Notes
This 376-nucleotide RNA from Salisediminibacterium halotolerans belongs to the Rfam family "Bacterial RNase P class B". From the family's description: Ribonuclease P (RNase P) is a ubiquitous endoribonuclease, found in archaea, bacteria and eukarya as well as chloroplasts and mitochondria. Its best characterised activity is the generation of mature 5'-ends of tRNAs by cleaving the 5'-leader elements of precursor-tRNAs. The family is grouped with related families in Rfam's "RNaseP clan". Its family is annotated with ribonuclease P activity, dimeric ribonuclease P complex and tRNA processing in the Gene Ontology. NCBI's taxonomy places the organism under Bacteria, Bacillati, Bacillota, Caryophanales, Salisediminibacterium. Rfam classes the family as a ribozyme.
RNA sequence: GUGUUCGGGUGAUCGCUGUACAGCCUGGCUGUAUAGAGGAAAGUCCAUGCUCACACAGUCUGAGAUGAUUGUAGUGUUCGCGCCUGACGAAACAAUAAGUCAGGGUAGCUGAUUUUUCAGCUAACGGCAGGAGAAGAACCUACGUGCGUUUGGCGCAUAUGGCUCUUCACCUUGAAAGUGCCACAGUGACGAAGUCUGAUUGGAAACAAUCAGAGUGGAACGAGGUAAACCCCGCGAGUGAGAAACCCAAAACAUGGUAGGGGAACUUCUGCGAAGGAAUUCAACGGAGCAGAAGGCAGCGCUGUAUCAGAGCUGCAGACAGAUGAUUACCGCUUUUUGUGCGCUGCAUAAAAAGAACAGAACAUGGCUUACAGAA
Numbered sequence: 001g002u003g004u005u006c007g008g009g010u011g012a013u014c015g016c017u018g019u020a021c022a023g024c025c026u027g028g029c030u031g032u033a034u035a036g037a038g039g040a041a042a043g044u045c046c047a048u049g050c051u052c053a054c055a056c057a058g059u060c061u062g063a064g065a066u067g068a069u070u071g072u073a074g075u076g077u078u079c080g081c082g083c084c085u086g087a088c089g090a091a092a093c094a095a096u097a098a099g100u101c102a103g104g105g106u107a108g109c110u111g112a113u114u115u116u117u118c119a120g121c122u123a124a125c126g127g128c129a130g131g132a133g134a135a136g137a138a139c140c141u142a143c144g145u146g147c148g149u150u151u152g153g154c155g156c157a158u159a160u161g162g163c164u165c166u167u168c169a170c171c172u173u174g175a176a177a178g179u180g181c182c183a184c185a186g187u188g189a190c191g192a193a194g195u196c197u198g199a200u201u202g203g204a205a206a207c208a209a210u211c212a213g214a215g216u217g218g219a220a221c222g223a224g225g226u227a228a229a230c231c232c233c234g235c236g237a238g239u240g241a242g243a244a245a246c247c248c249a250a251a252a253c254a255u256g257g258u259a260g261g262g263g264a265a266c267u268u269c270u271g272c273g274a275a276g277g278a279a280u281u282c283a284a285c286g287g288a289g290c291a292g293a294a295g296g297c298a299g300c301g302c303u304g305u306a307u308c309a310g311a312g313c314u315g316c317a318g319a320c321a322g323a324u325g326a327u328u329a330c331c332g333c334u335u336u337u338u339g340u341g342c343g344c345u346g347c348a349u350a351a352a353a354a355g356a357a358c359a360g361a362a363c364a365u366g367g368c369u370u371a372c373a374g375a376a
Stems, first nucleotide, its partner, number of pairs: 004376003007372001008331007016036006041370003045367005050242005055072006078237005083104006105125001106123006126232002129172003137164001139162002144158005178230002180226003195214008246262003266295007296316005333355009